This 84-nucleotide RNA from Saimiri boliviensis belongs to the Rfam family "mir-548 microRNA precursor family". The match comes from Rfam's covariance-model search (90 bits). Rfam links the family to the GO terms miRNA-mediated post-transcriptional gene silencing and RISC complex. The organism belongs to Saimiri boliviensis, within Eukaryota.
[Rfam]
RNA sequence: UAUUAGGUUGGUGUAAAAGUAAUUGCAGAAUUUGCCAUUAUGUUUAAUGGCAAAUACUACAAUUACUUUUGCACCAACCUAAUA
Numbered sequence: 001u002a003u004u005a006g007g008u009u010g011g012u013g014u015a016a017a018a019g020u021a022a023u024u025g026c027a028g029a030a031u032u033u034g035c036c037a038u039u040a041u042g043u044u045u046a047a048u049g050g051c052a053a054a055u056a057c058u059a060c061a062a063u064u065a066c067u068u069u070u071g072c073a074c075c076a077a078c079c080u081a082a083u084a
Stems, first nucleotide, its partner, number of pairs: 001084025027058002030055011